A member of the RNA family "Bacterial large subunit ribosomal RNA" from Nitratidesulfovibrio vulgaris, 226 nucleotides of a longer RNA.
[Rfam]
RNA sequence: GAGUUACUCUGUCCAGCAAGGUUAAGCGCAAGCGGAGCCGUAGCGAAAGCAAGUCUGAUAAGGGCGAUAAGUUGGGCGGAGUAGACCCGAAACCGGGUGAUCUAUCCAUGAGCAGGUUGAAGCACGGGUAAAACCGUGUGGAGGACCGAACCAGUAACGGCUGAAAACGUUUUGGAUGACUUGUGGAUAGGGGUGAAAGACCAAUCAAACUCGGUGAUAGCUGGUU
Numbered sequence: 001g002a003g004u005u006a007c008u009c010u011g012u013c014c015a016g017c018a019a020g021g022u023u024a025a026g027c028g029c030a031a032g033c034g035g036a037g038c039c040g041u042a043g044c045g046a047a048a049g050c051a052a053g054u055c056u057g058a059u060a061a062g063g064g065c066g067a068u069a070a071g072u073u074g075g076g077c078g079g080a081g082u083a084g085a086c087c088c089g090a091a092a093c094c095g096g097g098u099g100a101u102c103u104a105u106c107c108a109u110g111a112g113c114a115g116g117u118u119g120a121a122g123c124a125c126g127g128g129u130a131a132a133a134c135c136g137u138g139u140g141g142a143g144g145a146c147c148g149a150a151c152c153a154g155u156a157a158c159g160g161c162u163g164a165a166a167a168c169g170u171u172u173u174g175g176a177u178g179a180c181u182u183g184u185g186g187a188u189a190g191g192g193g194u195g196a197a198a199g200a201c202c203a204a205u206c207a208a209a210c211u212c213g214g215u216g217a218u219a220g221c222u223g224g225u226u
Stems, first nucleotide, its partner, number of pairs: 005083013020039004026033002043050002053065004086224002089221001093214006102190011113178001115147004122139006151175003156171004192202003